[Rfam]
RNA sequence: GGGAGUAGCAAAUAUUCAAGUGCGAUCCUUGAAGGCCGAAGGGGAGAAGGGUUCCAUGUGAACCGCGAUGGGACAUGGGUGAGUCGGUCCUAAGGGGCAGGCCAACGCCGAUGCGAGUGGCGCGUGAGCGCCGCACCCGAAAGGGAAUCGGGUUAACAUUCCCGAACCGGGCGACGGAGGUACGCGGCGACGCCCAGGAGCCUGGGGACGCCGGCGCGAGUCCCGGCGAGCGUUGUCUGUGCUUGUUGACUGCCUGACGCCCUGGAAGCAGCUGACCUGGAGAUAGGGCCGACUGGCAGGCAGAGCCCUGCAAGUGCGCGGGGUCCGGUGCGCUCGCGACGGCCCGUGAAAACCCAGGGGACGGAUUUCCUCUCGUGCCCGGCCGUACCCAUAACCGCAUCCGGUCUCCAAGGUGAGCAGCCUCUGGCCCA
Numbered sequence: 001g002g003g004a005g006u007a008g009c010a011a012a013u014a015u016u017c018a019a020g021u022g023c024g025a026u027c028c029u030u031g032a033a034g035g036c037c038g039a040a041g042g043g044g045a046g047a048a049g050g051g052u053u054c055c056a057u058g059u060g061a062a063c064c065g066c067g068a069u070g071g072g073a074c075a076u077g078g079g080u081g082a083g084u085c086g087g088u089c090c091u092a093a094g095g096g097g098c099a100g101g102c103c104a105a106c107g108c109c110g111a112u113g114c115g116a117g118u119g120g121c122g123c124g125u126g127a128g129c130g131c132c133g134c135a136c137c138c139g140a141a142a143g144g145g146a147a148u149c150g151g152g153u154u155a156a157c158a159u160u161c162c163c164g165a166a167c168c169g170g171g172c173g174a175c176g177g178a179g180g181u182a183c184g185c186g187g188c189g190a191c192g193c194c195c196a197g198g199a200g201c202c203u204g205g206g207g208a209c210g211c212c213g214g215c216g217c218g219a220g221u222c223c224c225g226g227c228g229a230g231c232g233u234u235g236u237c238u239g240u241g242c243u244u245g246u247u248g249a250c251u252g253c254c255u256g257a258c259g260c261c262c263u264g265g266a267a268g269c270a271g272c273u274g275a276c277c278u279g280g281a282g283a284u285a286g287g288g289c290c291g292a293c294u295g296g297c298a299g300g301c302a303g304a305g306c307c308c309u310g311c312a313a314g315u316g317c318g319c320g321g322g323g324u325c326c327g328g329u330g331c332g333c334u335c336g337c338g339a340c341g342g343c344c345c346g347u348g349a350a351a352a353c354c355c356a357g358g359g360g361a362c363g364g365a366u367u368u369c370c371u372c373u374c375g376u377g378c379c380c381g382g383c384c385g386u387a388c389c390c391a392u393a394a395c396c397g398c399a400u401c402c403g404g405u406c407u408c409c410a411a412g413g414u415g416a417g418c419a420g421c422c423u424c425u426g427g428c429c430c431a
Stems, first nucleotide, its partner, number of pairs: 015033006034429004043409004049389002054078006063071002085385003089144002094138002096112001098110001100109003119132003148165005168381004174376004178371002184193003201358006210343004215338007223328003226246006250299005259289006269279003306323006395404002411423004
The record is a 431-nucleotide part of an RNA from Cyanidioschyzon merolae, which matches "Eukaryotic large subunit ribosomal RNA" in Rfam. It is one of the family's seed sequences. Rfam links the family to the GO terms structural constituent of ribosome and ribosome.